The record is an 86-nucleotide sequence from Kalanchoe fedtschenkoi, which matches "Small nucleolar RNA Z199" in Rfam.
The family's consensus secondary structure was predicted with PFOLD.
Taxonomically the source falls in Kalanchoe (Eukaryota, Viridiplantae, Streptophytina, Magnoliopsida).
For this family Rfam cites "The high diversity of snoRNAs in plants: identification and comparative study of 120 snoRNA genes from Oryza sativa" (Chen et al., Nucleic Acids Res, 2003).
RNA sequence: GAAUCAGGUGACGAUAAACAAAACUGCAACAAUAUGAACGGAUUCAGUUCCGUCCAUGAUUCCUAGUAUUUAAGUCUCUGAUGAUU
Numbered sequence: 001g002a003a004u005c006a007g008g009u010g011a012c013g014a015u016a017a018a019c020a021a022a023a024c025u026g027c028a029a030c031a032a033u034a035u036g037a038a039c040g041g042a043u044u045c046a047g048u049u050c051c052g053u054c055c056a057u058g059a060u061u062c063c064u065a066g067u068a069u070u071u072a073a074g075u076c077u078c079u080g081a082u083g084a085u086u
Stems, first nucleotide, its partner, number of pairs: 001086002004084003039052004
Dot-bracket structure: ((.(((................................((((......)))).............................)))))